[Rfam]
RNA sequence: CAGCGCAGUGGCAGCUGCAAGCCACUGGCGGUAGCCAU
Numbered sequence: 001c002a003g004c005g006c007a008g009u010g011g012c013a014g015c016u017g018c019a020a021g022c023c024a025c026u027g028g029c030g031g032u033a034g035c036c037a038u
Base pairs, nucleotide, nucleotide: 008025009024010023011022012021
This 38-nucleotide sequence from Tolumonas auensis belongs to the Rfam family "JUMPstart RNA". The source organism's lineage runs through Bacteria, Pseudomonadati, Pseudomonadota, Tolumonas and Tolumonas auensis. The base pairs follow the family's consensus structure, which is taken from published work.